RNA sequence: UCCAGAGGCAGGUAAGCCACUGACUAACGCACAUUGCGCUUGUACUGGACUCCACUGUGCGUGUGACAGCGGCUAACCUGCCUCUAGGGUGUCGGUCU
Numbered sequence: 001u002c003c004a005g006a007g008g009c010a011g012g013u014a015a016g017c018c019a020c021u022g023a024c025u026a027a028c029g030c031a032c033a034u035u036g037c038g039c040u041u042g043u044a045c046u047g048g049a050c051u052c053c054a055c056u057g058u059g060c061g062u063g064u065g066a067c068a069g070c071g072g073c074u075a076a077c078c079u080g081c082c083u084c085u086a087g088g089g090u091g092u093c094g095g096u097c098u
Stems, first nucleotide, its partner, number of pairs: 005084008015074004020069003024065001025063002028061006035054002
This 98-nucleotide RNA from Lepisosteus oculatus belongs to the Rfam family "mir-210 microRNA precursor family". The match comes from Rfam's covariance-model search (80 bits). The family has 26 seed sequences and 790 matches in Rfam 15.1. Lineage of the source: Eukaryota > Eumetazoa > Deuterostomia > Euteleostomi > Lepisosteus.